[Rfam]
RNA: c-di-GMP-I riboswitch aptamer
Organism: Paenibacillus sp. FSL H7-0331
RNA sequence: UCUCGAUAAUAGCAAAGCAAGUGAAAGCUUGUGACGCAAAACUAUAGGGGCUUACGGUGCAAAGCAAGAUGCACCCAGCCAGCCAGCUGCCGAA
Dot-bracket structure: ...........((...((((((....))))))...))..(.((...(((((....((((((........))))))..)))..)))).)......